[Rfam]
RNA sequence: AGCUUGCAUCAAGAGUUGGGGAUUGACGCCCCGACGCCAACCUGCCGGUUCCCGGGCAAGGUGGCGCCUUCGCCAGCGAAGGGAUGCGGCCGGUCCGGCAACCAAACGGAACAAG
Numbered sequence: 001a002g003c004u005u006g007c008a009u010c011a012a013g014a015g016u017u018g019g020g021g022a023u024u025g026a027c028g029c030c031c032c033g034a035c036g037c038c039a040a041c042c043u044g045c046c047g048g049u050u051c052c053c054g055g056g057c058a059a060g061g062u063g064g065c066g067c068c069u070u071c072g073c074c075a076g077c078g079a080a081g082g083g084a085u086g087c088g089g090c091c092g093g094u095c096c097g098g099c100a101a102c103c104a105a106a107c108g109g110a111a112c113a114a115g
Stems, first nucleotide, its partner, number of pairs: 006087005015035001017034001019032003036065003041061003044057003050111001052109002089099004